[Rfam]
RNA sequence: CAAAUGAAGAGUUUGAUCCUGGCUCAGGAUAAACGCUGGCGGCGUGCCUAAUACAUGCAAGUCGAACGCCGGACACCUAGCUUGCUAGGGAGAAGGAGUGGCGAACGGGUGAGUAAUACAUAAGCAAUCUGCCCACAAAGACUGGGAUAACCUCUGGAAACGGGGACUAAUACCGGAUAGGUAGGAGAGAGGCAUCUUUCUUCUAUUAAAGAUGAGAAGCACUAGUGGAUGAGCUUAUGGCGCAUUAGUUAGUUGGUGAGGUAACGGCCCACCAAGACGAUGAUGCGUAGCCGGCCUGAGAGGGUGAACGGCCACAUUGGGACUGAGACACGGCCCAGACUCCUACGGGAGGCAGCAGUAGGGAAUUUUCGGCAAUGGGGGGAACCCUGACCGAGCAACGCCGCGUGAGUGAAGACGGCCUUCGGGUUGUAAAGCUCUGUUGUAAGAAAAGAUAAACUAGGAGAGGAUCUUAGUCAGACAUUAUCUUACCAGAAAGCCACGGCUAACUACGUGCCAGCAGCCGCGGUAAUACGUAGGUGGCGAGCGUUAUCCGGAAUUAUUG
Numbered sequence: 001c002a003a004a005u006g007a008a009g010a011g012u013u014u015g016a017u018c019c020u021g022g023c024u025c026a027g028g029a030u031a032a033a034c035g036c037u038g039g040c041g042g043c044g045u046g047c048c049u050a051a052u053a054c055a056u057g058c059a060a061g062u063c064g065a066a067c068g069c070c071g072g073a074c075a076c077c078u079a080g081c082u083u084g085c086u087a088g089g090g091a092g093a094a095g096g097a098g099u100g101g102c103g104a105a106c107g108g109g110u111g112a113g114u115a116a117u118a119c120a121u122a123a124g125c126a127a128u129c130u131g132c133c134c135a136c137a138a139a140g141a142c143u144g145g146g147a148u149a150a151c152c153u154c155u156g157g158a159a160a161c162g163g164g165g166a167c168u169a170a171u172a173c174c175g176g177a178u179a180g181g182u183a184g185g186a187g188a189g190a191g192g193c194a195u196c197u198u199u200c201u202u203c204u205a206u207u208a209a210a211g212a213u214g215a216g217a218a219g220c221a222c223u224a225g226u227g228g229a230u231g232a233g234c235u236u237a238u239g240g241c242g243c244a245u246u247a248g249u250u251a252g253u254u255g256g257u258g259a260g261g262u263a264a265c266g267g268c269c270c271a272c273c274a275a276g277a278c279g280a281u282g283a284u285g286c287g288u289a290g291c292c293g294g295c296c297u298g299a300g301a302g303g304g305u306g307a308a309c310g311g312c313c314a315c316a317u318u319g320g321g322a323c324u325g326a327g328a329c330a331c332g333g334c335c336c337a338g339a340c341u342c343c344u345a346c347g348g349g350a351g352g353c354a355g356c357a358g359u360a361g362g363g364a365a366u367u368u369u370c371g372g373c374a375a376u377g378g379g380g381g382g383a384a385c386c387c388u389g390a391c392c393g394a395g396c397a398a399c400g401c402c403g404c405g406u407g408a409g410u411g412a413a414g415a416c417g418g419c420c421u422u423c424g425g426g427u428u429g430u431a432a433a434g435c436u437c438u439g440u441u442g443u444a445a446g447a448a449a450a451g452a453u454a455a456a457c458u459a460g461g462a463g464a465g466g467a468u469c470u471u472a473g474u475c476a477g478a479c480a481u482u483a484u485c486u487u488a489c490c491a492g493a494a495a496g497c498c499a500c501g502g503c504u505a506a507c508u509a510c511g512u513g514c515c516a517g518c519a520g521c522c523g524c525g526g527u528a529a530u531a532c533g534u535a536g537g538u539g540g541c542g543a544g545c546g547u548u549a550u551c552c553g554g555a556a557u558u559a560u561u562g
Stems, first nucleotide, its partner, number of pairs: 009025005027552004032548006039404006045397002047362001052360003056357003061102003066099002069095001076089005109315003119239007128232002133228004139223002142176004152165005182205010211220001213218001241287003248278003253275006260268001290312004294305004317338005340351004368394001370393003376389005407437004417428004441493001442489006451479001457473003496541005507536005517524002

Overview
Bacterial small subunit ribosomal RNA: a 562-nucleotide part of an RNA from Bulleidia extructa.